[Rfam]
RNA sequence: AGCUCUAUGAUUGCAGCCAGUUAAGUUGGCAAUAUACGCUAUUCUGAGAAAUUUCUACUUAAAGAGAUGACAAUGGAUGAUAUGAGAGCU
Numbered sequence: 001a002g003c004u005c006u007a008u009g010a011u012u013g014c015a016g017c018c019a020g021u022u023a024a025g026u027u028g029g030c031a032a033u034a035u036a037c038g039c040u041a042u043u044c045u046g047a048g049a050a051a052u053u054u055c056u057a058c059u060u061a062a063a064g065a066g067a068u069g070a071c072a073a074u075g076g077a078u079g080a081u082a083u084g085a086g087a088g089c090u
Base pairs, nucleotide, nucleotide: 001090002089003088004087005086